[Rfam]
RNA sequence: GGUCCGAGCCACGUUGAUGGUAGUCUAAAUGACAAUGACCAUCAAUGUUAUGAUCGGACCUAUAUAAAUUCCGCAUUUCACAUCUUGGUUGGAAUCUGUAGACUGAUUUACCAUUCAUUUCUAGAGCCAUUUUGUGAGAUUUCAUCU
Numbered sequence: 001g002g003u004c005c006g007a008g009c010c011a012c013g014u015u016g017a018u019g020g021u022a023g024u025c026u027a028a029a030u031g032a033c034a035a036u037g038a039c040c041a042u043c044a045a046u047g048u049u050a051u052g053a054u055c056g057g058a059c060c061u062a063u064a065u066a067a068a069u070u071c072c073g074c075a076u077u078u079c080a081c082a083u084c085u086u087g088g089u090u091g092g093a094a095u096c097u098g099u100a101g102a103c104u105g106a107u108u109u110a111c112c113a114u115u116c117a118u119u120u121c122u123a124g125a126g127c128c129a130u131u132u133u134g135u136g137a138g139a140u141u142u143c144a145u146c147u
Stems, first nucleotide, its partner, number of pairs: 002059006008051001012047006019040003023033003078139002081136002091128002096124003100120003
The family of this 147-nucleotide sequence from Papaver nudicaule is "Small nucleolar RNA snoR2/U65". The family's RNA type in Rfam is H/ACA-box small nucleolar RNA. On this family, see Shaw et al., J Cell Sci 1998: "Localization and processing from a polycistronic precursor of novel snoRNAs in maize". The source organism's lineage runs through Eukaryota, Viridiplantae, Euphyllophyta, Magnoliopsida and Papaver.